[Rfam]
Rfam assigns this 134-nucleotide sequence from Heliornis fulica to the family "U11 spliceosomal RNA". Taxonomically the source falls in Heliornis (Eukaryota, Gnathostomata, Sauria, Theropoda). For this family Rfam cites "Additional low-abundance human small nuclear ribonucleoproteins: U11, U12, etc" (Montzka and Steitz, Proc Natl Acad Sci U S A, 1988). The family has 72 seed sequences and 2,595 matches in Rfam 15.1. Gene Ontology terms of the family: U11 snRNP, mRNA 5'-splice site recognition and pre-mRNA 5'-splice site binding.

RNA sequence: AAAAAGGGCUUCUGCUGUGUGAGGCACAGGGUGGGUGGGGGCUCCAUGGCCACCCCCAUGGAAUUGACAUCAAGAUUUCAGAAGCACAAUUUCUGCUGUUGGGACCUCCGGUAACCACCAGUUACGGUGUAAUU
Numbered sequence: 001a002a003a004a005a006g007g008g009c010u011u012c013u014g015c016u017g018u019g020u021g022a023g024g025c026a027c028a029g030g031g032u033g034g035g036u037g038g039g040g041g042c043u044c045c046a047u048g049g050c051c052a053c054c055c056c057c058a059u060g061g062a063a064u065u066g067a068c069a070u071c072a073a074g075a076u077u078u079c080a081g082a083a084g085c086a087c088a089a090u091u092u093c094u095g096c097u098g099u100u101g102g103g104a105c106c107u108c109c110g111g112u113a114a115c116c117a118c119c120a121g122u123u124a125c126g127g128u129g130u131a132a133u134u
Stems, first nucleotide, its partner, number of pairs: 008085005013026004029056003032052003035047004059080007104130002108127003113123003